This 209-nucleotide RNA sequence from Oryza nivara belongs to the Rfam family "MIR812 microRNA precursor family".
[Rfam]
RNA sequence: AAUAAAUGCAGCCACAAAAAUAUGUGUCUAACGUUUAACCAUUCGUCUUAUUUAAAAUAUUUAUAAAUUUUUUUAAAAAAAUUAAUAACACAUAAAGUACUAUCUAUAUUUUAUCAUCUAAUAACAAUAAAAAAUAGUAAUCAUAAAAAAUUUUCAAAUAAGAUGAACGGUCAAAUGUUGGAGAUAAAUAGUAUAAAACUACACUUAUU
Numbered sequence: 001a002a003u004a005a006a007u008g009c010a011g012c013c014a015c016a017a018a019a020a021u022a023u024g025u026g027u028c029u030a031a032c033g034u035u036u037a038a039c040c041a042u043u044c045g046u047c048u049u050a051u052u053u054a055a056a057a058u059a060u061u062u063a064u065a066a067a068u069u070u071u072u073u074u075a076a077a078a079a080a081a082u083u084a085a086u087a088a089c090a091c092a093u094a095a096a097g098u099a100c101u102a103u104c105u106a107u108a109u110u111u112u113a114u115c116a117u118c119u120a121a122u123a124a125c126a127a128u129a130a131a132a133a134a135u136a137g138u139a140a141u142c143a144u145a146a147a148a149a150a151u152u153u154u155c156a157a158a159u160a161a162g163a164u165g166a167a168c169g170g171u172c173a174a175a176u177g178u179u180g181g182a183g184a185u186a187a188a189u190a191g192u193a194u195a196a197a198a199c200u201a202c203a204c205u206u207a208u209u
Stems, first nucleotide, its partner, number of pairs: 027182006034175003038171003042167012